Rfam assigns this 187-nucleotide sequence from Marinomonas piezotolerans to the family "Manganese Mn2+ riboswitch aptamer (yybP-ykoY)". Its family is annotated with manganese ion binding in the Gene Ontology. Pairs were carried over by alignment from the consensus structure. This RNA was originally discovered in E. coli during a large scale screen and was named SraF. The family was later found to exist upstream of related families of protein genes in many bacteria, including the the yybP and ykoK genes in B. subtilis. The specific functions of these proteins are unknown, but this structured RNA element may be involved in their genetic regulation as a riboswitch. Rfam 15.1 lists 1,126 matches to the family in 1,062 species.

[Rfam]
RNA sequence: CAAGCCUUCUUAAGGGAGUAAUCUUCUUCACCUUGGUGAAGAUUCUCUGUCAACAUAAUUGAGCCUCAAUGCUCAUGGCAGAGAAGUCCAACGUUACCAACGCUGGGAUUGAUGAGACUUAAGACAAUCACUUUGCUCAGGUGGGCGCAGGUGUAUUGUCUUAUGUUUAAUCGCCCACCAUUGGAUC
Number, nucleotide and partner (000 for none) at each position: 001c000002a000003a000004g000005c000006c000007u000008u000009c000010u000011u000012a000013a000014g000015g000016g000017a000018g000019u000020a000021a000022u000023c000024u000025u042026c041027u040028u000029c000030a000031c000032c000033u000034u000035g000036g000037u000038g000039a000040a027041g026042a025043u085044u084045c083046u082047c081048u080049g079050u078051c077052a076053a000054c000055a000056u000057a000058a000059u000060u075061g074062a073063g072064c071065c000066u000067c000068a000069a000070u000071g064072c063073u062074c061075a060076u052077g051078g050079c049080a048081g047082a046083g045084a044085a043086g186087u185088c184089c183090a182091a181092c000093g000094u000095u000096a000097c000098c000099a000100a000101c000102g000103c000104u000105g000106g000107g000108a000109u000110u000111g000112a000113u000114g000115a000116g000117a000118c000119u000120u000121a000122a000123g000124a000125c000126a000127a000128u000129c000130a000131c000132u000133u000134u000135g000136c000137u000138c000139a000140g000141g000142u000143g000144g000145g000146c000147g000148c000149a000150g000151g000152u000153g000154u000155a000156u000157u000158g000159u000160c000161u000162u000163a000164u000165g000166u000167u000168u000169a000170a000171u000172c000173g000174c000175c000176c000177a000178c000179c000180a000181u091182u090183g089184g088185a087186u086187c000